[Rfam]
Nucleotides: 140
Stems, first nucleotide, its partner, number of pairs: 001055008014042005020036004069132006081119009094110005
Number, partner (000 for none) and nucleotide at each position: 001055u002054g003053a004052u005051g006050a007049c008048u009000g010000u011000u012000c013000u014042u015041c016040c017039u018038g019000u020036u021035g022034c023033c024000u025000u026000c027000a028000g029000a030000c031000c032000u033023g034022g035021c036020a037000u038018u039017a040016g041015g042014a043000u044000u045000u046000u047000a048008g049007g050006u051005c052004a053003u054002c055001a056000u057000a058000a059000a060000u061000u062000a063000a064000a065000a066000u067000u068000u069132g070131a071130u072129u073128u074127u075000c076000u077000u078000c079000a080000c081119u082118c083117a084116g085115a086114g087113a088112a089111u090000a091000u092000u093000a094110g095109g096108a097107u098106a099000a100000u101000g102000g103000a104000g105000u106098u107097a108096u109095c110094u111089g112088u113087u114086c115085u116084c117083u118082g119081a120000a121000a122000u123000u124000u125000g126000c127074g128073g129072a130071a131070u132069c133000a134000a135000a136000c137000a138000u139000g140000u

Source information: Small nucleolar RNA SNORA79: a 140-nucleotide sequence. The family has 25 seed sequences and 944 matches in Rfam 15.1. Rfam describes the family as follows. ACA65 (SNORA79) is a member of the H/ACA class of snoRNAs that guide the sites of modification of uridines to pseudouridines. This snoRNA was identified by computational screening and its expression in mouse experimentally verified by Northern blot and primer extension analysis. The base pairs follow the family's consensus structure, which was predicted with RNAalifold.